A member of the RNA family "mir-30 microRNA precursor family" from Clupea harengus, 74 nucleotides long. Gene Ontology terms of the family: RISC complex and gene silencing by miRNA. Rfam describes the family as follows. This family consists of the mammalian microRNA (miRNA) precursor mir-30a. The match comes from Rfam's covariance-model search (61 bits). The family has 175 seed sequences and 3,879 matches in Rfam 15.1. The family's consensus secondary structure was predicted with PFOLD. On this family, see Lagos-Quintana et al., Science 2001: "Identification of novel genes coding for small expressed RNAs".
Nucleotides: 074
Base pairs, nucleotide, nucleotide: 002073004071005070006069008067009066010065011064012063013062014061015060016059018057019056020055024053025052026051027050028049029048030047031046032045
Number, partner (000 for none) and nucleotide at each position: 001000a002073c003000c004071a005070g006069g007000a008067g009066u010065g011064u012063a013062a014061a015060c016059a017000u018057c019056c020055u021000a022000c023000a024053c025052u026051c027050u028049c029048a030047g031046c032045u033000g034000u035000g036000a037000c038000a039000u040000c041000a042000c043000g044000g045032a046031g047030c048029u049028g050027g051026g052025a053024g054000a055020g056019g057018g058000u059016u060015g061014u062013u063012u064011a065010c066009g067008c068000u069006u070005u071004u072000u073002g074000c